[Rfam]
RNA sequence: AGCGGUUCAGUCCGACCCCCCGGGACUGAACCUGGCGACCCCCGUCCCUCCCCCCUGGCGGGGGUCGCUCUGU
Numbered sequence: 001a002g003c004g005g006u007u008c009a010g011u012c013c014g015a016c017c018c019c020c021c022g023g024g025a026c027u028g029a030a031c032c033u034g035g036c037g038a039c040c041c042c043c044g045u046c047c048c049u050c051c052c053c054c055c056u057g058g059c060g061g062g063g064g065u066c067g068c069u070c071u072g073u
Base pairs, nucleotide, nucleotide: 002033004032005031006030007029008028009027010026011025012024013023034069035068036067037066038065039064040063041062042061043060044059045058046057
RNA: 6C RNA